This 148-nucleotide RNA from Martelella alba belongs to the Rfam family "FMN riboswitch aptamer (RFN element)". The match comes from Rfam's covariance-model search (118 bits). Pairs were carried over by alignment from the consensus structure, which is taken from published work.

[Rfam]
RNA sequence: CCAUGUUCUCGGGGCGGGGUGAAACUCCCCACCGGCGGUAAGUGUUUAAUUACACAAAGCCCGCGAGCGCCCGGCAGUUCUGCCGGGGUCAGCAGAUCCGGUGUCAUUCCGGAGCCGACGGUUAAAGUCCGGAUGUGAGAGAACAGCA
Numbered sequence: 001c002c003a004u005g006u007u008c009u010c011g012g013g014g015c016g017g018g019g020u021g022a023a024a025c026u027c028c029c030c031a032c033c034g035g036c037g038g039u040a041a042g043u044g045u046u047u048a049a050u051u052a053c054a055c056a057a058a059g060c061c062c063g064c065g066a067g068c069g070c071c072c073g074g075c076a077g078u079u080c081u082g083c084c085g086g087g088g089u090c091a092g093c094a095g096a097u098c099c100g101g102u103g104u105c106a107u108u109c110c111g112g113a114g115c116c117g118a119c120g121g122u123u124a125a126a127g128u129c130c131g132g133a134u135g136u137g138a139g140a141g142a143a144c145a146g147c148a
Stems, first nucleotide, its partner, number of pairs: 004145007017029003031128002033117002035064004059115002067093002097113005119131003
Dot-bracket structure: ...(((((((......(((.......))).[[((((((....................[[))))..((.......................))...(((((.......)))))]])).(((.....]]))).......)))))))...